About this RNA:
This 85-nucleotide RNA sequence from Microcaecilia unicolor belongs to the Rfam family "Mammalian CPEB3 ribozyme". The base pairs follow the family's consensus structure, which is taken from published work. On this family, see Teixeira et al., Nature 2004: "Autocatalytic RNA cleavage in the human beta-globin pre-mRNA promotes transcription termination". Rfam describes the family as follows. The mammalian CPEB3 ribozyme is a self cleaving RNA located in the second intron of the CPEB3 gene which belongs to a family of genes regulating messenger RNA polyadenylation.

RNA sequence: UAUGUGGGAGGGGGGGUCUGUAAAGAAACAUUCAUAUCAUGGCUCUUGUCAGGUUGUCAGGUUUUACAAAUCUGUGAAUUCUGCU
Numbered sequence: 001u002a003u004g005u006g007g008g009a010g011g012g013g014g015g016g017u018c019u020g021u022a023a024a025g026a027a028a029c030a031u032u033c034a035u036a037u038c039a040u041g042g043c044u045c046u047u048g049u050c051a052g053g054u055u056g057u058c059a060g061g062u063u064u065u066a067c068a069a070a071u072c073u074g075u076g077a078a079u080u081c082u083g084c085u
Stems, first nucleotide, its partner, number of pairs: 013046006024082004028040001050074006
Dot-bracket structure: ............((((((.....[[[[(...........)))))))...((((((.............))))))....]]]]...